[Rfam]
RNA: mir-598 microRNA precursor family
Organism: Capra hircus
RNA sequence: GCUGACGCUGGUGGUGAUGCCGAUGGCGCGAGCCAGACAGUGGGUGCCACGUCAUCAUUGUCAUCGUCACCAUCAUCAUC
Numbered sequence: 001g002c003u004g005a006c007g008c009u010g011g012u013g014g015u016g017a018u019g020c021c022g023a024u025g026g027c028g029c030g031a032g033c034c035a036g037a038c039a040g041u042g043g044g045u046g047c048c049a050c051g052u053c054a055u056c057a058u059u060g061u062c063a064u065c066g067u068c069a070c071c072a073u074c075a076u077c078a079u080c
Stems, first nucleotide, its partner, number of pairs: 001077001003075003007071001009069009021060006028053001029051002032047002